Shown here is a 79-nucleotide RNA sequence from Neorhizobium lilium, a member of the family "ybhL leader". Its family is annotated with regulation of gene expression in the Gene Ontology. NCBI's taxonomy places the organism under Bacteria, Pseudomonadati, Alphaproteobacteria, Hyphomicrobiales, Neorhizobium. Rfam classes the family as a cis-regulatory leader. The base pairs follow the family's consensus structure.
RNA sequence: CAGGCUAGCUGUAGCUCCGCAGCGGCGCCUGGGUCUGGAUUAAAGGGGGCCCGACACCGUGAAUAUUUCCGGAGCUAAU
Dot-bracket structure: ...........((((((((...(((....((((.(............).))))...)))..........))))))))..
On this family, see Corbino et al., Genome Biol 2005: "Evidence for a second class of S-adenosylmethionine riboswitches and other regulatory RNA motifs in alpha-proteobacteria".
Rfam's curators write: This family is a putative regulatory RNA structure that is found upstream of an uncharacterized membrane protein in alpha-proteobacteria.